Rfam assigns this 86-nucleotide RNA from Cebus imitator to the family "Small nucleolar RNA SNORD70". The family has 21 seed sequences and 1,085 matches in Rfam 15.1. Rfam's curators write: snoRNA HBII-234 belongs to the C/D family of snoRNAs. It is the human orthologue of the mouse MBII-234 and is predicted to guide 2'O-ribose methylation of the small 18S rRNA on position A512. It is hosted, together with HBII-95, by the core C/D box snoRNA protein encoding gene NOP5/NOP58. The source organism's lineage runs through Eukaryota, Gnathostomata, Sarcopterygii, Mammalia and Cebus.
Nucleotides: 086
Base pairs, nucleotide, nucleotide: 001086002085003084004083005082006081007080008079009078010077012075
Number, partner (000 for none) and nucleotide at each position: 001086u002085u003084c004083a005082u006081u007080g008079u009078u010077g011000c012075c013000a014000a015000u016000g017000a018000u019000g020000u021000a022000u023000u024000a025000u026000u027000g028000u029000u030000g031000g032000a033000a034000c035000u036000g037000a038000g039000u040000c041000u042000a043000a044000g045000u046000g047000a048000u049000c050000u051000a052000a053000c054000u055000c056000u057000a058000u059000u060000c061000c062000u063000c064000a065000c066000u067000a068000c069000c070000a071000c072000u073000g074000a075012g076000a077010c078009a079008a080007c081006g082005a083004u084003g085002a086001g